[Rfam]
RNA: Small nucleolar RNA R64/Z200 family
RNA sequence: CUUCUGUUGUGAUGAUAUAUGAAAAUAACAACACAUGUCAGACUUCAGAGAUUUCUUUUAAAGAAAUCCGUGAGAAGACAAUUUCAAUUUUCUGAGCAGAAG
Numbered sequence: 001c002u003u004c005u006g007u008u009g010u011g012a013u014g015a016u017a018u019a020u021g022a023a024a025a026u027a028a029c030a031a032c033a034c035a036u037g038u039c040a041g042a043c044u045u046c047a048g049a050g051a052u053u054u055c056u057u058u059u060a061a062a063g064a065a066a067u068c069c070g071u072g073a074g075a076a077g078a079c080a081a082u083u084u085c086a087a088u089u090u091u092c093u094g095a096g097c098a099g100a101a102g
Stems, first nucleotide, its partner, number of pairs: 001102007050068007